[Rfam]
RNA sequence: UAAACUCAAAUUUGUAUGGAGUUGGAACGUUCGCCUACGUAUGCCGCUAGGGGCGCUGUUACAACUGCAUACAGAUGUGUUC
Numbered sequence: 001u002a003a004a005c006u007c008a009a010a011u012u013u014g015u016a017u018g019g020a021g022u023u024g025g026a027a028c029g030u031u032c033g034c035c036u037a038c039g040u041a042u043g044c045c046g047c048u049a050g051g052g053g054c055g056c057u058g059u060u061a062c063a064a065c066u067g068c069a070u071a072c073a074g075a076u077g078u079g080u081u082c
Stems, first nucleotide, its partner, number of pairs: 008078001010076007018068001020066005026060004034052003039047002
RNA: mir-2807 microRNA precursor family